[Rfam]
RNA: tRNA
Organism: Pseudonocardia hydrocarbonoxydans
RNA sequence: GGGCGCGUAGCUCAGCGGGAGAGCUCUCGGUUUACACCCGAGCGGUCGCAGGUUCGAACCCUGCCGCGCCCA
Numbered sequence: 001g002g003g004c005g006c007g008u009a010g011c012u013c014a015g016c017g018g019g020a021g022a023g024c025u026c027u028c029g030g031u032u033u034a035c036a037c038c039c040g041a042g043c044g045g046u047c048g049c050a051g052g053u054u055c056g057a058a059c060c061c062u063g064c065c066g067c068g069c070c071c072a
Base pairs, nucleotide, nucleotide: 001071002070003069004068005067006066007065010024011023012022013021026042027041028040029039030038048064049063050062051061052060